[Rfam]
RNA sequence: AGGAGAAACAUCAUUGAGUGCAGCGUUGAUGAAUUCCCCUACAUGACAUAUUUCUGUUGGUUAAUUCAUUACCAAUAUCCCUUCUUUAAAAAAAGAAGUAAACCUUUUUGGGAAUAGAUGGUUUUGGAUGAUUUCACCAGCGCUGCAUUCAAUCAUGUUUUUC
Numbered sequence: 001a002g003g004a005g006a007a008a009c010a011u012c013a014u015u016g017a018g019u020g021c022a023g024c025g026u027u028g029a030u031g032a033a034u035u036c037c038c039c040u041a042c043a044u045g046a047c048a049u050a051u052u053u054c055u056g057u058u059g060g061u062u063a064a065u066u067c068a069u070u071a072c073c074a075a076u077a078u079c080c081c082u083u084c085u086u087u088a089a090a091a092a093a094a095g096a097a098g099u100a101a102a103c104c105u106u107u108u109u110g111g112g113a114a115u116a117g118a119u120g121g122u123u124u125u126g127g128a129u130g131a132u133u134u135c136a137c138c139a140g141c142g143c144u145g146c147a148u149u150c151a152a153u154c155a156u157g158u159u160u161u162u163c
Stems, first nucleotide, its partner, number of pairs: 006160006013153016030136003

Overview:
This 163-nucleotide sequence from Ricinus communis belongs to the Rfam family "MIR397 microRNA precursor family". Lineage of the source: Eukaryota > Embryophyta > Pentapetalae > Euphorbiaceae > Ricinus. For this family Rfam cites "High throughput approaches reveal splicing of primary microRNA transcripts and tissue specific expression of mature microRNAs in Vitis vinifera" (Mica et al., BMC Genomics, 2009).